[Rfam]
A member of the RNA family "Actinomyces-1 RNA", 109 nucleotides long. Rfam's curators put it in the seed alignment. The family's consensus secondary structure is taken from published work. By type it is a small RNA.

RNA sequence: GUCGCCGUCGGACGGAGGCGGUCGCGAGGGUUGGGGAACCCGACGACCGGCCGCAGUCGAGGCGACCAAGGGUCUAAGGGAGCCCGUGGACGCCGCUCCGGCGAAGGAG
Numbered sequence: 001g002u003c004g005c006c007g008u009c010g011g012a013c014g015g016a017g018g019c020g021g022u023c024g025c026g027a028g029g030g031u032u033g034g035g036g037a038a039c040c041c042g043a044c045g046a047c048c049g050g051c052c053g054c055a056g057u058c059g060a061g062g063c064g065a066c067c068a069a070g071g072g073u074c075u076a077a078g079g080g081a082g083c084c085c086g087u088g089g090a091c092g093c094c095g096c097u098c099c100g101g102c103g104a105a106g107g108a109g
Stems, first nucleotide, its partner, number of pairs: 006103007013059003018054007028041005061094004066089001070085004